A member of the RNA family "Small nucleolar RNA SNORA70" from Suricata suricatta, 134 nucleotides long. The base pairs follow the family's consensus structure, which was predicted with PFOLD. Taxonomically the source falls in Suricata (Eukaryota, Opisthokonta, Bilateria, Gnathostomata). It scores 122 bits against the family's covariance model. About the family: snoRNA U70 seems to be exclusive to mammals and is a member of the H/ACA class of snoRNA which contain H (ANANNA) and ACA box motifs. H/ACA box snoRNAs are involved in the conversion of uridines to pseudouridines (5-ribosyluracil) a constituent of structural RNAs (transfer, ribosomal, small nuclear, and small nucleolar). The family has 43 seed sequences and 5,173 matches in Rfam 15.1. Gene Ontology terms of the family: RNA processing and nucleolus.
RNA sequence: CUGCAGCCAAUUAAGCUGACUGUGUUCUUUCCCCGCGGGGCCCCAGUGUGAAAUGGCCGCAUACAGUAGCCUCUUUGGUAGUGUAUGCAGCCUGUUGAUUGUAUGAGUUGCCCUAAGAGACCUUGGGGACGGCC
Numbered sequence: 001c002u003g004c005a006g007c008c009a010a011u012u013a014a015g016c017u018g019a020c021u022g023u024g025u026u027c028u029u030u031c032c033c034c035g036c037g038g039g040g041c042c043c044c045a046g047u048g049u050g051a052a053a054u055g056g057c058c059g060c061a062u063a064c065a066g067u068a069g070c071c072u073c074u075u076u077g078g079u080a081g082u083g084u085a086u087g088c089a090g091c092c093u094g095u096u097g098a099u100u101g102u103a104u105g106a107g108u109u110g111c112c113c114u115a116a117g118a119g120a121c122c123u124u125g126g127g128g129a130c131g132g133c134c
Base pairs, nucleotide, nucleotide: 002052004050005049019047020046021045022044024041025040026039027038077122078121079120088110089109090108091107093105